[Rfam]
RNA: Small nucleolar RNA U3
RNA sequence: AAGACUAUACUUUCAGGGACCAUUUCUAUAGUUUGUGACUAGAGAAGUUUCUCUGAACGUGUAGAGCGCCGGAAACCAUGAGGAGGAGGCGUGGUGUUCUCUCCUGAGCAUGAAGCCAGCAGUUGUUGUUGCUUCUGCAGCUGCCACUUGCCUUUGAUGAUCAUUCUUCUCUCUCUUUGAGAGAGUAAGAGGGAGAACACCGUCUGAGUGGU
Numbered sequence: 001a002a003g004a005c006u007a008u009a010c011u012u013u014c015a016g017g018g019a020c021c022a023u024u025u026c027u028a029u030a031g032u033u034u035g036u037g038a039c040u041a042g043a044g045a046a047g048u049u050u051c052u053c054u055g056a057a058c059g060u061g062u063a064g065a066g067c068g069c070c071g072g073a074a075a076c077c078a079u080g081a082g083g084a085g086g087a088g089g090c091g092u093g094g095u096g097u098u099c100u101c102u103c104c105u106g107a108g109c110a111u112g113a114a115g116c117c118a119g120c121a122g123u124u125g126u127u128g129u130u131g132c133u134u135c136u137g138c139a140g141c142u143g144c145c146a147c148u149u150g151c152c153u154u155u156g157a158u159g160a161u162c163a164u165u166c167u168u169c170u171c172u173c174u175c176u177u178u179g180a181g182a183g184a185g186u187a188a189g190a191g192g193g194a195g196a197a198c199a200c201c202g203u204c205u206g207a208g209u210g211g212u
Stems, first nucleotide, its partner, number of pairs: 002040002005037001006035002009032003015027004049065002054061001075212005094200008104192002108164001119151003124146002127143001128141005167188002169185007